[Rfam]
The family of this 145-nucleotide RNA from Aotus nancymaae is "Small nucleolar RNA SNORA4". ACA4 is a member of the H/ACA class of snoRNA that guide the sites of modification of uridines to pseudouridines. Rfam links the family to the GO terms RNA processing and nucleolus. It scores 109 bits against the family's covariance model. By type it is an H/ACA-box small nucleolar RNA. Lineage of the source: Eukaryota > Metazoa > Deuterostomia > Eutheria > Aotus.
RNA sequence: CUACCAAAAGUUACUUUUUGUGGGGUGGAAGUUUCUUAAAUAACCUCUACCAAUUUGAGCUGUUUUGGAAAAUAAAGAAAAGACCACAGUUAACAAGUGGGCUAUACCUCUUAGUACAGUUCACCACUAUUUUGUAGCUUAUAUU
Numbered sequence: 001c002u003a004c005c006a007a008a009a010g011u012u013a014c015u016u017u018u019u020g021u022g023g024g025g026u027g028g029a030a031g032u033u034u035c036u037u038a039a040a041u042a043a044c045c046u047c048u049a050c051c052a053a054u055u056u057g058a059g060c061u062g063u064u065u066u067g068g069a070a071a072a073u074a075a076a077g078a079a080a081a082g083a084c085c086a087c088a089g090u091u092a093a094c095a096a097g098u099g100g101g102c103u104a105u106a107c108c109u110c111u112u113a114g115u116a117c118a119g120u121u122c123a124c125c126a127c128u129a130u131u132u133u134g135u136a137g138c139u140u141a142u143a144u145u
Stems, first nucleotide, its partner, number of pairs: 004067001006065003012062002015059003022055002027050001029048001031044003081140002084137001086135003097124007105116003